[Rfam]
RNA: RNase MRP
Organism: Pichia californica
RNA sequence: GUCUAUGUUGCAAGAAUCAUCGAUCGAGACACACACAAGGGACAUCCAAUGUCCAAAUCUAGUCUUGGGGAAAGUCUCCGGCACGUUUUUUCAGGCGGAAACGUCAGAUGGACCACUACAAAUCCAUUUCUAGUUGUUCUUGCUUUUUUUCGGUGUGGGUUUUUCUUUUUUGUUUAUUGGAUAUUUCUUUAUUAGUUGUCUAAUACCGGACCUUGCAAUUUUUAGUUGGACUAUAAGGUUUUAUUAUUUCUUCAAUGAAUUAAAAUUAUAAAAGCUCACGUUUACUGUUAAAAUUAUAGAAGUUCUUAGGACUGUCAAAAGAUGUUGCUAUUUUCUUUGGAAAUGCAUUUCUUUUUGUUUGAAAUCACUCUUCUUAUUAAUGGGUGUAUUCUGCAAAACAUCAUGUGAUGUUAACGAUGGAUAUGAUGAUUGUCAUUUGUUACCAAAUGAUAACCCAAUGGAGCUCACUUGUAGCAUGGA
Numbered sequence: 001g002u003c004u005a006u007g008u009u010g011c012a013a014g015a016a017u018c019a020u021c022g023a024u025c026g027a028g029a030c031a032c033a034c035a036c037a038a039g040g041g042a043c044a045u046c047c048a049a050u051g052u053c054c055a056a057a058u059c060u061a062g063u064c065u066u067g068g069g070g071a072a073a074g075u076c077u078c079c080g081g082c083a084c085g086u087u088u089u090u091u092c093a094g095g096c097g098g099a100a101a102c103g104u105c106a107g108a109u110g111g112a113c114c115a116c117u118a119c120a121a122a123u124c125c126a127u128u129u130c131u132a133g134u135u136g137u138u139c140u141u142g143c144u145u146u147u148u149u150u151c152g153g154u155g156u157g158g159g160u161u162u163u164u165c166u167u168u169u170u171u172g173u174u175u176a177u178u179g180g181a182u183a184u185u186u187c188u189u190u191a192u193u194a195g196u197u198g199u200c201u202a203a204u205a206c207c208g209g210a211c212c213u214u215g216c217a218a219u220u221u222u223u224a225g226u227u228g229g230a231c232u233a234u235a236a237g238g239u240u241u242u243a244u245u246a247u248u249u250c251u252u253c254a255a256u257g258a259a260u261u262a263a264a265a266u267u268a269u270a271a272a273a274g275c276u277c278a279c280g281u282u283u284a285c286u287g288u289u290a291a292a293a294u295u296a297u298a299g300a301a302g303u304u305c306u307u308a309g310g311a312c313u314g315u316c317a318a319a320a321g322a323u324g325u326u327g328c329u330a331u332u333u334u335c336u337u338u339g340g341a342a343a344u345g346c347a348u349u350u351c352u353u354u355u356u357g358u359u360u361g362a363a364a365u366c367a368c369u370c371u372u373c374u375u376a377u378u379a380a381u382g383g384g385u386g387u388a389u390u391c392u393g394c395a396a397a398a399c400a401u402c403a404u405g406u407g408a409u410g411u412u413a414a415c416g417a418u419g420g421a422u423a424u425g426a427u428g429a430u431u432g433u434c435a436u437u438u439g440u441u442a443c444c445a446a447a448u449g450a451u452a453a454c455c456c457a458a459u460g461g462a463g464c465u466c467a468c469u470u471g472u473a474g475c476a477u478g479g480a
Base pairs, nucleotide, nucleotide: 002480003479004478005477006476007475008474009473010472011471016431019427020426021425024068025067026066027065028064029063030062040054041053042052043051044050045049073465074464076463077462078461079460094105095104096103097102106129107128108127109126110125111124349400353398354397355396356395357394358393363390364389365388374383375382376381433450434449435448436447437446438445